[Rfam]
RNA sequence: AAAGAAAGUGAAAAGCUACCAAAGACAGUGGGUGGAGAAAUCCUUAAUAUCCUACCGAGGAAGAUAGAUAUUUAAUAUAAAUUUCUGUGGUUCUCUAUGUCUUGGGUGAUGUAGGGCUUUUUUAUUUAAAAA
Number, nucleotide and partner (000 for none) at each position: 001a000002a000003a000004g000005a000006a000007a000008g000009u000010g000011a000012a000013a000014a000015g000016c000017u000018a000019c000020c000021a000022a000023a000024g000025a000026c000027a000028g055029u054030g053031g052032g051033u000034g043035g042036a041037g000038a000039a000040a000041u036042c035043c034044u000045u000046a000047a000048u000049a000050u000051c032052c031053u030054a029055c028056c000057g000058a000059g000060g000061a000062a000063g000064a000065u000066a000067g000068a000069u000070a000071u000072u000073u000074a000075a000076u000077a000078u000079a000080a000081a000082u000083u000084u000085c000086u000087g000088u000089g000090g000091u000092u000093c116094u115095c114096u113097a112098u111099g110100u109101c108102u000103u000104g000105g000106g000107u000108g101109a100110u099111g098112u097113a096114g095115g094116g093117c000118u000119u000120u000121u000122u000123u000124a000125u000126u000127u000128a000129a000130a000131a000132a000
The record is a 132-nucleotide RNA from Granulicatella sp. zg-ZJ, which matches "Ribosomal protein L10 leader" in Rfam. By type it is a cis-regulatory leader. The family's consensus secondary structure was predicted with CMfinder. Rfam links the family to the GO term regulation of gene expression.